[Rfam]
RNA: Small nucleolar RNA SNORD53/SNORD92
RNA sequence: GUGGGAUGAUGAGAGUUGGAGAGGUUUCGCUUAAAAAGCUGAACUCCUGUGAUGUCAUAUCCUCUUGGCUGUCUGACCAC
Numbered sequence: 001g002u003g004g005g006a007u008g009a010u011g012a013g014a015g016u017u018g019g020a021g022a023g024g025u026u027u028c029g030c031u032u033a034a035a036a037a038g039c040u041g042a043a044c045u046c047c048u049g050u051g052a053u054g055u056c057a058u059a060u061c062c063u064c065u066u067g068g069c070u071g072u073c074u075g076a077c078c079a080c
Stems, first nucleotide, its partner, number of pairs: 001080004